[Rfam]
RNA sequence: GGUGAUAAACACGGUCUGGAAUAAUCGUUGCGGACCCGGGGGCAGUGCCCGGCGCCUCCACCAUCACGGGGGGGCGAAACAGGCUCGACGCGCGUGGUAAAGAGACCGCUUUUGCCCGGCAUGGUUCCGCCGUCAUCGGGCCGAUUCUAAGUGCGAACGAUAACAGCCGUGAGGCUGUCGCACUCGCUGCCUAG
Numbered sequence: 001g002g003u004g005a006u007a008a009a010c011a012c013g014g015u016c017u018g019g020a021a022u023a024a025u026c027g028u029u030g031c032g033g034a035c036c037c038g039g040g041g042g043c044a045g046u047g048c049c050c051g052g053c054g055c056c057u058c059c060a061c062c063a064u065c066a067c068g069g070g071g072g073g074g075c076g077a078a079a080c081a082g083g084c085u086c087g088a089c090g091c092g093c094g095u096g097g098u099a100a101a102g103a104g105a106c107c108g109c110u111u112u113u114g115c116c117c118g119g120c121a122u123g124g125u126u127c128c129g130c131c132g133u134c135a136u137c138g139g140g141c142c143g144a145u146u147c148u149a150a151g152u153g154c155g156a157a158c159g160a161u162a163a164c165a166g167c168c169g170u171g172a173g174g175c176u177g178u179c180g181c182a183c184u185c186g187c188u189g190c191c192u193a194g
Base pairs, nucleotide, nucleotide: 001116002115003114004113005112014106015105016104017103026094027093028092030091031090032089036052037051038050039049040048053076054075055074056073057072058071059070117132118131119130120129

Record summary:
Rfam assigns this 194-nucleotide RNA sequence from Belnapia rosea to the family "permuted transfer-messenger RNA". The base pairs follow the family's consensus structure, which is taken from published work. The organism belongs to Belnapia, within Bacteria. For this family Rfam cites "Phylogenetic analysis of tmRNA secondary structure" (Williams and Bartel, RNA, 1996).